FMN riboswitch aptamer (RFN element): a 112-nucleotide RNA sequence from Megasphaera micronuciformis.
[Rfam]
Nucleotides: 112
Base pairs, nucleotide, nucleotide: 004109005108006107007106008105009104010103017029018028019027031092032091033082034081035048036047037046038045043080044079051058052057062078063077064076065075066074084095085094086093
Number, partner (000 for none) and nucleotide at each position: 001000a002000c003000c004109u005108a006107u007106c008105u009104u010103c011000a012000g013000g014000g015000c016000a017029g018028g019027g020000u021000g022000a023000a024000a025000u026000u027019c028018c029017c030000g031092a032091u033082c034081g035048g036047c037046g038045g039000u040000a041000c042000a043080g044079u045038c046037c047036g048035c049000a050000a051058g052057c053000g054000c055000a056000a057052g058051c059000a060000g061000a062078u063077u064076c065075g066074g067000u068000g069000u070000g071000a072000u073000u074066c075065c076064g077063a078062a079044a080043c081034c082033g083000a084095c085094a086093g087000u088000a089000u090000a091032g092031u093086c094085u095084g096000g097000a098000u099000g100000a101000g102000a103010g104009a105008a106007g107006a108005u109004a110000u111000g112000u
Taxonomically the source falls in Megasphaera micronuciformis (Bacteria, Bacillati, Veillonellales, Veillonellaceae).